[Rfam]
RNA sequence: UUUGUGCGUACGAUAAGUGGAUACGUGUAUCCGAAUUUUGAGCACAGGGAAAUGAGCCUUGGCAACAGCGUGAGCAAUCACGGAAAGCCACAACAUAUACACACGGAGCAGAGUUUGGUAGGCAUGGCAACAUGAGCCGAAGAAGUCGUACUCC
Numbered sequence: 001u002u003u004g005u006g007c008g009u010a011c012g013a014u015a016a017g018u019g020g021a022u023a024c025g026u027g028u029a030u031c032c033g034a035a036u037u038u039u040g041a042g043c044a045c046a047g048g049g050a051a052a053u054g055a056g057c058c059u060u061g062g063c064a065a066c067a068g069c070g071u072g073a074g075c076a077a078u079c080a081c082g083g084a085a086a087g088c089c090a091c092a093a094c095a096u097a098u099a100c101a102c103a104c105g106g107a108g109c110a111g112a113g114u115u116u117g118g119u120a121g122g123c124a125u126g127g128c129a130a131c132a133u134g135a136g137c138c139g140a141a142g143a144a145g146u147c148g149u150a151c152u153c154c
Stems, first nucleotide, its partner, number of pairs: 003046005011040003015036001018033005048058002060090004069082005105154004111147002114144003121137001123134003
Dot-bracket structure: ..(((((...(((.(..(((((......)))))..).))).))))).((.......)).((((.....(((((....)))))....))))..............((((..((.(((....(.(((......)))..)....))).))...))))

The family of this 154-nucleotide RNA sequence is "RT-3 RNA". The base pairs follow the family's consensus structure, which is taken from published work.